[Rfam]
Shown here is a 59-nucleotide sequence from Candidatus Erwinia dacicola, a member of the family "Lambda phage CIII thermoregulator element". Gene Ontology terms of the family: response to temperature stimulus and regulation of translation. Rfam's curators write: There is an evidence supporting presence of a riboswitch upstream of the thermometer. The family's RNA type in Rfam is RNA thermoregulator. On this family, see Altuvia et al., J Mol Biol 1989: "Alternative mRNA structures of the cIII gene of bacteriophage lambda determine the rate of its translation initiation". The base pairs follow the family's consensus structure, which is taken from published work.

RNA sequence: ACAGGAGCACGCCAUGCAAUUAGCCAUUGCAGGGUGGCCUAUUGCUGGCCGCCAUUCUG
Number, nucleotide and partner (000 for none) at each position: 001a000002c000003a000004g000005g053006a000007g052008c051009a000010c000011g000012c048013c047014a046015u000016g045017c044018a043019a042020u041021u000022a000023g038024c037025c036026a035027u034028u033029g000030c000031a000032g000033g028034g027035u026036g025037g024038c023039c000040u000041a020042u019043u018044g017045c016046u014047g013048g012049c000050c000051g008052c007053c005054a000055u000056u000057c000058u000059g000